[Rfam]
RNA sequence: GCGGUACCGGUUCACGCCGCGGCGGCAUCCCCGCCCAGGCGACCCGGCGACC
Numbered sequence: 001g002c003g004g005u006a007c008c009g010g011u012u013c014a015c016g017c018c019g020c021g022g023c024g025g026c027a028u029c030c031c032c033g034c035c036c037a038g039g040c041g042a043c044c045c046g047g048c049g050a051c052c
Stems, first nucleotide, its partner, number of pairs: 003052003007047004015041004021035005
RNA: L31-Actinobacteria ribosomal protein leader